Small nucleolar RNA snoR53Y: an 83-nucleotide RNA sequence from Elaeis guineensis. The source organism's lineage runs through Eukaryota, Streptophytina, Mesangiospermae, Elaeidinae and Elaeis. The family's RNA type in Rfam is C/D-box small nucleolar RNA. Its Rfam clan is "snoR53 clan".
[Rfam]
Nucleotides: 083
Stems, first nucleotide, its partner, number of pairs: 001082007
Number, partner (000 for none) and nucleotide at each position: 001082a002081u003080u004079c005078c006077c007076u008000g009000u010000g011000a012000u013000g014000u015000u016000c017000a018000u019000c020000u021000g022000a023000u024000g025000a026000a027000c028000c029000a030000u031000g032000c033000u034000a035000a036000u037000g038000c039000u040000g041000a042000u043000a044000u045000g046000c047000a048000u049000u050000g051000a052000u053000g054000a055000u056000u057000a058000a059000u060000u061000a062000u063000u064000a065000a066000u067000g068000c069000u070000a071000u072000u073000c074000u075000g076007a077006g078005g079004g080003a081002a082001u083000c